Shown here is a 156-nucleotide sequence from Sphingomonas changbaiensis, a member of the family "6S / SsrS RNA". The organism belongs to Sphingomonas changbaiensis, within Bacteria. Rfam classes the family as a non-coding RNA gene.
RNA sequence: CGGGUACUGCUCGGUGCGAGCCUCAGCAUUAUCCCUGAGCCGAUUAAUCAUCCAUGGGAGCUGUCCCUGGGCGGACCCUGGUUCGCCCUAAACGGCGCCCACCUGACGCUCGGGCGUCAGAGGAUAUUCCUGGCCAACGGCCAUAGCGGUCCCGUC
Numbered sequence: 001c002g003g004g005u006a007c008u009g010c011u012c013g014g015u016g017c018g019a020g021c022c023u024c025a026g027c028a029u030u031a032u033c034c035c036u037g038a039g040c041c042g043a044u045u046a047a048u049c050a051u052c053c054a055u056g057g058g059a060g061c062u063g064u065c066c067c068u069g070g071g072c073g074g075a076c077c078c079u080g081g082u083u084c085g086c087c088c089u090a091a092a093c094g095g096c097g098c099c100c101a102c103c104u105g106a107c108g109c110u111c112g113g114g115c116g117u118c119a120g121a122g123g124a125u126a127u128u129c130c131u132g133g134c135c136a137a138c139g140g141c142c143a144u145a146g147c148g149g150u151c152c153c154g155u156c
Stems, first nucleotide, its partner, number of pairs: 003153002006150006013142003017139002032124003035120004039115003056100003060096005069088008
Dot-bracket structure: ..((.((((((.(((.((.............((((((((((..............(((.(((((....((((((((....))))))))...))))).)))............))).)))).))).............)))))..)))))).))...